[Rfam]
RNA sequence: AUACGCAAGUAUUGACUGCCGAAGACAGUAGGUGCCGCAAGGCGUAAGGGGUGACCGCCUACCGAGGAAAUGUACAAAACUCACUGAGUGAUUGUAGACCUCUCUGUCUUUGUGACGGAGAGGUUUUUCUUUGCAGGA
Numbered sequence: 001a002u003a004c005g006c007a008a009g010u011a012u013u014g015a016c017u018g019c020c021g022a023a024g025a026c027a028g029u030a031g032g033u034g035c036c037g038c039a040a041g042g043c044g045u046a047a048g049g050g051g052u053g054a055c056c057g058c059c060u061a062c063c064g065a066g067g068a069a070a071u072g073u074a075c076a077a078a079a080c081u082c083a084c085u086g087a088g089u090g091a092u093u094g095u096a097g098a099c100c101u102c103u104c105u106g107u108c109u110u111u112g113u114g115a116c117g118g119a120g121a122g123g124u125u126u127u128u129c130u131u132u133g134c135a136g137g138a
Stems, first nucleotide, its partner, number of pairs: 028062006034043003099123010

Ribosomal protein L10 leader: a 138-nucleotide RNA from Hungatella hathewayi. Taxonomically the source falls in Hungatella hathewayi (Bacteria, Bacillati, Clostridia, Lachnospiraceae). From the family's description: This family is a putative r-protein leader autoregulatory structure found in B. subtilis and other low-GC Gram-positive bacteria. It is located in the 5' untranslated regions of mRNAs encoding ribosomal proteins L10 and L12 (rplJ-rplL). It scores 76 bits against the family's covariance model. By type it is a cis-regulatory leader.